The family of this 96-nucleotide sequence from Caballeronia novacaledonica is "Burkholderia sRNA Bp1_Cand612_SIPHT". For this family Rfam cites "Computational discovery and RT-PCR validation of novel Burkholderia conserved and Burkholderia pseudomallei unique sRNAs" (Khoo et al., BMC Genomics, 2012). The organism belongs to Caballeronia, within Bacteria. The family's consensus secondary structure was predicted with RNAalifold. By type it is a small RNA.
RNA sequence: AAAAAAAAUGGGCGCAACGCCCAUCUUCUUCAACCGAGGUCGCACCCGGGCAGCGAAAAAACUACGUGCCCAGCGACUUCAUGAUUUUAGCCAUUU
Number, nucleotide and partner (000 for none) at each position: 001a000002a000003a000004a000005a000006a000007a000008a024009u023010g022011g021012g020013c019014g018015c000016a000017a000018c014019g013020c012021c011022c010023a009024u008025c000026u000027u000028c000029u000030u000031c000032a000033a000034c000035c000036g000037a087038g086039g085040u084041c083042g082043c000044a000045c000046c000047c000048g079049g078050g077051c000052a000053g074054c073055g000056a000057a000058a000059a000060a000061a000062c000063u000064a000065c000066g000067u000068g000069c000070c000071c000072a000073g054074c053075g000076a000077c050078u049079u048080c000081a000082u042083g041084a040085u039086u038087u037088u000089a000090g000091c000092c000093a000094u000095u000096u000